RNA sequence: GGCUGAUCUGAAGGGAGUAAGUUUUCUCUAUAGUCCACAGUUACAAAUCAAACUCCUUGUUCUAUUUCCUCUCUUCUCAUUGCUGCACUUGACUAGUCUCAA
Numbered sequence: 001g002g003c004u005g006a007u008c009u010g011a012a013g014g015g016a017g018u019a020a021g022u023u024u025u026c027u028c029u030a031u032a033g034u035c036c037a038c039a040g041u042u043a044c045a046a047a048u049c050a051a052a053c054u055c056c057u058u059g060u061u062c063u064a065u066u067u068c069c070u071c072u073c074u075u076c077u078c079a080u081u082g083c084u085g086c087a088c089u090u091g092a093c094u095a096g097u098c099u100c101a102a
Base pairs, nucleotide, nucleotide: 001098002097003096004095005094007092008091010090011089014086016081017080018079020077021076039063040062